[Rfam]
RNA sequence: UUAUAAGAAACAGUUGACUUUUUAGAUUCAUUGAAUAAUUGAUGCAUUUGGUCUAUAUUACAGACCAGAUACAUCAGUUAUUCAAUAAAUCUAAAAGUCAAUUGUUUCUUAUAA
Numbered sequence: 001u002u003a004u005a006a007g008a009a010a011c012a013g014u015u016g017a018c019u020u021u022u023u024a025g026a027u028u029c030a031u032u033g034a035a036u037a038a039u040u041g042a043u044g045c046a047u048u049u050g051g052u053c054u055a056u057a058u059u060a061c062a063g064a065c066c067a068g069a070u071a072c073a074u075c076a077g078u079u080a081u082u083c084a085a086u087a088a089a090u091c092u093a094a095a096a097g098u099c100a101a102u103u104g105u106u107u108c109u110u111a112u113a114a
Stems, first nucleotide, its partner, number of pairs: 002113006009106005015100003019097007027089002030086015049067004